[Rfam]
RNA sequence: AUGAUUCUGGUUUCAAUCCAGGCAAGUGUUUCUAUAUGUACAGAUAAUGUAGAAAAUCUUGUGUGGAUUGGAACCAGGGUCAU
Numbered sequence: 001a002u003g004a005u006u007c008u009g010g011u012u013u014c015a016a017u018c019c020a021g022g023c024a025a026g027u028g029u030u031u032c033u034a035u036a037u038g039u040a041c042a043g044a045u046a047a048u049g050u051a052g053a054a055a056a057u058c059u060u061g062u063g064u065g066g067a068u069u070g071g072a073a074c075c076a077g078g079g080u081c082a083u
Stems, first nucleotide, its partner, number of pairs: 003081004008076004013071008022062001029056003032052002

Rfam assigns this 83-nucleotide sequence from Ornithorhynchus anatinus to the family "mir-1422 microRNA precursor family". Lineage of the source: Eukaryota > Deuterostomia > Chordata > Tetrapoda > Ornithorhynchus.